[Rfam]
RNA sequence: UCAGUAGUAUUAAAGUGCUUAUAGUGCAGGUAGUUUAAUGAAAUUCUACUGCAGUUUGAGCACUUAAAAUACUUCUCG
Numbered sequence: 001u002c003a004g005u006a007g008u009a010u011u012a013a014a015g016u017g018c019u020u021a022u023a024g025u026g027c028a029g030g031u032a033g034u035u036u037a038a039u040g041a042a043a044u045u046c047u048a049c050u051g052c053a054g055u056u057u058g059a060g061c062a063c064u065u066a067a068a069a070u071a072c073u074u075c076u077c078g
Base pairs, nucleotide, nucleotide: 004075006073007072009070010069011068013065014064015063016062017061018060019059020058021057023055025053026052027051029050030049031048032047033046
About this RNA: Rfam assigns this 78-nucleotide RNA sequence from Liparis tanakae to the family "mir-17 microRNA precursor family". This family represents the microRNA (miRNA) precursor mir-17, family, which includes mir-20, mir-91, and mir-103. miRNAs are transcribed as ~70nt precursors (modelled here) and subsequently processed by the Dicer enzyme to give a ~22nt product. In this case the mature sequence comes from the 3' arm of the precursor. The extents of the hairpin precursors are not generally known and are estimated based on hairpin prediction. Its family is annotated with miRNA-mediated post-transcriptional gene silencing and RISC complex in the Gene Ontology. For this family Rfam cites "Structural Features Within Precursor microRNA-20a Regulate Dicer-TRBP Processing" (Liu et al., J Mol Biol, 2025). Lineage of the source: Eukaryota > Gnathostomata > Actinopterygii > Neopterygii > Liparis. It scores 71 bits against the family's covariance model.